[Rfam]
RNA sequence: AUACUAAACGUGCCGAAGUUCCUUCAAAGGAACACGGAGGAACCAUUACUGGGGUGAAUCCGCACAUGCGGUAGGGAUUUCCCUUAUCCCGAACCCGUCAGCUAACUUCGUAGGCAGAGAAAGGGAGUGGUU
Number, nucleotide and partner (000 for none) at each position: 001a000002u000003a000004c000005u000006a000007a000008a000009c000010g000011u116012g115013c114014c113015g000016a000017a000018g033019u032020u031021c030022c029023u000024u000025c000026a000027a000028a000029g022030g021031a020032a019033c018034a111035c110036g109037g108038a107039g106040g000041a000042a000043c000044c051045a050046u000047u000048a000049c000050u045051g044052g096053g095054g094055u000056g000057a000058a000059u000060c071061c070062g069063c068064a000065c000066a000067u000068g063069c062070g061071g060072u000073a000074g090075g089076g088077a087078u000079u000080u000081c000082c000083c000084u000085u000086a000087u077088c076089c075090c074091g000092a000093a000094c054095c053096c052097g000098u000099c000100a000101g000102c000103u000104a000105a000106c039107u038108u037109c036110g035111u034112a000113g014114g013115c012116a011117g000118a000119g000120a000121a000122a000123g000124g000125g000126a000127g000128u000129g000130g000131u000132u000